[Rfam]
RNA sequence: UACUACCAAAUCCUAUCUCCUACCUCCACGUGGUGACCGCUGGGAGCUCUUUCUUAACGAAAAGCUGUAGACGGAGAUGG
Numbered sequence: 001u002a003c004u005a006c007c008a009a010a011u012c013c014u015a016u017c018u019c020c021u022a023c024c025u026c027c028a029c030g031u032g033g034u035g036a037c038c039g040c041u042g043g044g045a046g047c048u049c050u051u052u053c054u055u056a057a058c059g060a061a062a063a064g065c066u067g068u069a070g071a072c073g074g075a076g077a078u079g080g
Stems, first nucleotide, its partner, number of pairs: 013080008022034003045066004050061002053059001
drz-agam-1 ribozyme: an 80-nucleotide RNA sequence from Hermetia illucens. Lineage of the source: Eukaryota > Pancrustacea > Dicondylia > Diptera > Hermetia. The family has 7 seed sequences and 10,507 matches in Rfam 15.1. The match comes from Rfam's covariance-model search (37 bits). The base pairs follow the family's consensus structure, which is taken from published work. The literature on the family includes a 2009 paper in Science by Webb et al., "Widespread occurrence of self-cleaving ribozymes".